[Rfam]
The record is a 527-nucleotide part of an RNA from Trichogramma brassicae, which matches "Eukaryotic large subunit ribosomal RNA" in Rfam. The source organism's lineage runs through Eukaryota, Ecdysozoa, Panarthropoda, Insecta and Trichogramma.
RNA sequence: CCGUCCGAAGUUUCCCUCAGGAUAGCUGGCGUCGAUUCGAACAGUCUCAUCCGGUAAAGCGAAUGAUUAGAGGCAUUGGGGCCGAAACGACCUCAACCUAUUCUCAAACUUUAAAUGGGUGAGAACUCCGGCUUACUCGAACGAUGAAGCCGGAGAUCUGAUGACGGUGCCAAGUGGGCCAAUUUUGGUAAGCAGAACUGGCGCUGUGGGAUGAACCAAACGUAGUGUUAAGGCGCCUAAAAAACGCUCAUGGGACACCAUGAAAGGCGUUGGUCGCUCAUGACAGCAGGACGGUGGCCAUGGAAGUCGGAAUCCGCUAAGGAGUGUGCAACGACUCACCUGCCGAAGCAACCAGCCCUGAAAAUGGAUGGCGCUGAAGCGUUUUGCCUAUACACUACCGUUACCGGCAUGUGAGAUUCGCCUUUGCGACGUGUCGGGUCAUGAAGCCGUAACGAGUAGGACGUGCGCGGCGGAGAGCGCAGAAGGGUCUGGGCGUGAGCCCGCUUGGAGCCUCCGUCGGUGCAGAU
Numbered sequence: 001c002c003g004u005c006c007g008a009a010g011u012u013u014c015c016c017u018c019a020g021g022a023u024a025g026c027u028g029g030c031g032u033c034g035a036u037u038c039g040a041a042c043a044g045u046c047u048c049a050u051c052c053g054g055u056a057a058a059g060c061g062a063a064u065g066a067u068u069a070g071a072g073g074c075a076u077u078g079g080g081g082c083c084g085a086a087a088c089g090a091c092c093u094c095a096a097c098c099u100a101u102u103c104u105c106a107a108a109c110u111u112u113a114a115a116u117g118g119g120u121g122a123g124a125a126c127u128c129c130g131g132c133u134u135a136c137u138c139g140a141a142c143g144a145u146g147a148a149g150c151c152g153g154a155g156a157u158c159u160g161a162u163g164a165c166g167g168u169g170c171c172a173a174g175u176g177g178g179c180c181a182a183u184u185u186u187g188g189u190a191a192g193c194a195g196a197a198c199u200g201g202c203g204c205u206g207u208g209g210g211a212u213g214a215a216c217c218a219a220a221c222g223u224a225g226u227g228u229u230a231a232g233g234c235g236c237c238u239a240a241a242a243a244a245c246g247c248u249c250a251u252g253g254g255a256c257a258c259c260a261u262g263a264a265a266g267g268c269g270u271u272g273g274u275c276g277c278u279c280a281u282g283a284c285a286g287c288a289g290g291a292c293g294g295u296g297g298c299c300a301u302g303g304a305a306g307u308c309g310g311a312a313u314c315c316g317c318u319a320a321g322g323a324g325u326g327u328g329c330a331a332c333g334a335c336u337c338a339c340c341u342g343c344c345g346a347a348g349c350a351a352c353c354a355g356c357c358c359u360g361a362a363a364a365u366g367g368a369u370g371g372c373g374c375u376g377a378a379g380c381g382u383u384u385u386g387c388c389u390a391u392a393c394a395c396u397a398c399c400g401u402u403a404c405c406g407g408c409a410u411g412u413g414a415g416a417u418u419c420g421c422c423u424u425u426g427c428g429a430c431g432u433g434u435c436g437g438g439u440c441a442u443g444a445a446g447c448c449g450u451a452a453c454g455a456g457u458a459g460g461a462c463g464u465g466c467g468c469g470g471c472g473g474a475g476a477g478c479g480c481a482g483a484a485g486g487g488u489c490u491g492g493g494c495g496u497g498a499g500c501c502c503g504c505u506u507g508g509a510g511c512c513u514c515c516g517u518c519g520g521u522g523c524a525g526a527u
Base pairs, nucleotide, nucleotide: 001465002463003462004461005460006459011024013022014021015020027172028171029170030169031168032167033166045124046123047122048121049120050119051118052117057112058110059109064106065105066104069101071099072098073097076096077095078094079093080092081091083089126155127154128153129152130151131150132149133148134147178202179201180200181199183197184196185195186194187193207218208217209216222398223397224396225395226394228392232388233387234386241385242384245381246380247379265359266358267357269356270355271354272353273352274351276349277348278347286343287342288341289340290339292316293315294314298310299309317321322337326335327334399454400453401452402451403450404449406448407447408446466522468519469518470517471516472515473514474513475512477511478510485506486505492501493500494499